The record is a 190-nucleotide sequence from Hemibagrus wyckioides, which matches "Small nucleolar RNA SNORA81" in Rfam. The family's consensus secondary structure was predicted with WAR. A reference for the family is Gu et al. (2005), "A novel experimental approach for systematic identification of box H/ACA snoRNAs from eukaryotes", Nucleic Acids Res. A search with the family's covariance model found it, with a score of 69 bits. It is annotated as an H/ACA-box small nucleolar RNA.
RNA sequence: CCCUUCUUUAUAAAAAGCGCCAUGCCAAAACCAGCAGGUCUAAGCUUUUUCCAGUUUAGUCCUGCUGGUCAUGCUGGUAUGGUACGUCUCAAAGAAGGGAGAGUAAAAGCCGCAGCGUCGGAAACGAGGCCCGGAGGGACCUCUUUCUUAAUGUCCCAUGUCCUGCGUCUCAAGAUUCUGCGCAACACUU
Numbered sequence: 001c002c003c004u005u006c007u008u009u010a011u012a013a014a015a016a017g018c019g020c021c022a023u024g025c026c027a028a029a030a031c032c033a034g035c036a037g038g039u040c041u042a043a044g045c046u047u048u049u050u051c052c053a054g055u056u057u058a059g060u061c062c063u064g065c066u067g068g069u070c071a072u073g074c075u076g077g078u079a080u081g082g083u084a085c086g087u088c089u090c091a092a093a094g095a096a097g098g099g100a101g102a103g104u105a106a107a108a109g110c111c112g113c114a115g116c117g118u119c120g121g122a123a124a125c126g127a128g129g130c131c132c133g134g135a136g137g138g139a140c141c142u143c144u145u146u147c148u149u150a151a152u153g154u155c156c157c158a159u160g161u162c163c164u165g166c167g168u169c170u171c172a173a174g175a176u177u178c179u180g181c182g183c184a185a186c187a188c189u190u
Stems, first nucleotide, its partner, number of pairs: 020082002023079005030072001033069001037062002040059007109183001111182005117176001134159001136157004